[Rfam]
RNA: Alphaproteobacterial sRNA ar9
RNA sequence: AUAAAAUAAGAGGGUGGAACCUUAAAUCCGCUCUCACUUACGCGGUCAAAGUCUUGGGAGGAUACGAUCCUGGCGCGCAUGUUCGCUGCCGCCGUUUGAAAAACGGAAACGGGUCGGACGCGUUUAGUUGCAAGGCGUACCUGCCUUGCUUUUUUUU
Numbered sequence: 001a002u003a004a005a006a007u008a009a010g011a012g013g014g015u016g017g018a019a020c021c022u023u024a025a026a027u028c029c030g031c032u033c034u035c036a037c038u039u040a041c042g043c044g045g046u047c048a049a050a051g052u053c054u055u056g057g058g059a060g061g062a063u064a065c066g067a068u069c070c071u072g073g074c075g076c077g078c079a080u081g082u083u084c085g086c087u088g089c090c091g092c093c094g095u096u097u098g099a100a101a102a103a104c105g106g107a108a109a110c111g112g113g114u115c116g117g118a119c120g121c122g123u124u125u126a127g128u129u130g131c132a133a134g135g136c137g138u139a140c141c142u143g144c145c146u147u148g149c150u151u152u153u154u155u156u157u
Base pairs, nucleotide, nucleotide: 003157004156005155006154011034012033013032014031015030016029017028018027041122042121043120044119051063052062053061054060066115067114068113069112070111072090073089074088075086076085077084092106093105094104095103096102130149131148132147133146134145135144136143